[Rfam]
Shown here is a 102-nucleotide RNA sequence from Solitalea longa, a member of the family "SAM riboswitch aptamer (S box leader)".
RNA sequence: UCUUUAUAUAGAAGAGGCGAGAGAACAGGCUUAAUGACCCUCUGGCAACCCCCAAAAUGGAAAGGUGCCACUUCCUGCCCCGCGAAAGGGGAGCUAUAAAAA
Numbered sequence: 001u002c003u004u005u006a007u008a009u010a011g012a013a014g015a016g017g018c019g020a021g022a023g024a025a026c027a028g029g030c031u032u033a034a035u036g037a038c039c040c041u042c043u044g045g046c047a048a049c050c051c052c053c054a055a056a057a058u059g060g061a062a063a064g065g066u067g068c069c070a071c072u073u074c075c076u077g078c079c080c081c082g083c084g085a086a087a088g089g090g091g092a093g094c095u096a097u098a099a100a101a102a
Stems, first nucleotide, its partner, number of pairs: 001102001003100006013043005021032003026077004044069004049065002052060003078091004
Pairs were carried over by alignment from the consensus structure, which is taken from published work. Taxonomically the source falls in Solitalea (Bacteria, Bacteroidota, Sphingobacteriia, Sphingobacteriaceae).